TPP riboswitch aptamer (THI element): a 105-nucleotide sequence from Isoptericola dokdonensis. Rfam links the family to the GO term thiamine pyrophosphate binding.

RNA sequence: UGGUCCGAGCACGGGAGCCCUGCGCAGGGCUGAGAGGGCGCGGCGGCGCCGACCGUCGAACCUGAUCUGGGUCAUGCCAGCGAAGGGAGCACACCAUGCAACGCG
Numbered sequence: 001u002g003g004u005c006c007g008a009g010c011a012c013g014g015g016a017g018c019c020c021u022g023c024g025c026a027g028g029g030c031u032g033a034g035a036g037g038g039c040g041c042g043g044c045g046g047c048g049c050c051g052a053c054c055g056u057c058g059a060a061c062c063u064g065a066u067c068u069g070g071g072u073c074a075u076g077c078c079a080g081c082g083a084a085g086g087g088a089g090c091a092c093a094c095c096a097u098g099c100a101a102c103g104c105g
Stems, first nucleotide, its partner, number of pairs: 007092001009090002011056004017030005037050005061086003067080004
It scores 63 bits against the family's covariance model.